[Rfam]
RNA sequence: CCCAUGGGGGCCGCGAUCCCCUCAUGAGGCGACAGCCCAAGCAUCGCGUCCGGCUCACCUUCAGCAAGGACGCAUUGCCAUG
Numbered sequence: 001c002c003c004a005u006g007g008g009g010g011c012c013g014c015g016a017u018c019c020c021c022u023c024a025u026g027a028g029g030c031g032a033c034a035g036c037c038c039a040a041g042c043a044u045c046g047c048g049u050c051c052g053g054c055u056c057a058c059c060u061u062c063a064g065c066a067a068g069g070a071c072g073c074a075u076u077g078c079c080a081u082g
Stems, first nucleotide, its partner, number of pairs: 005024006046073006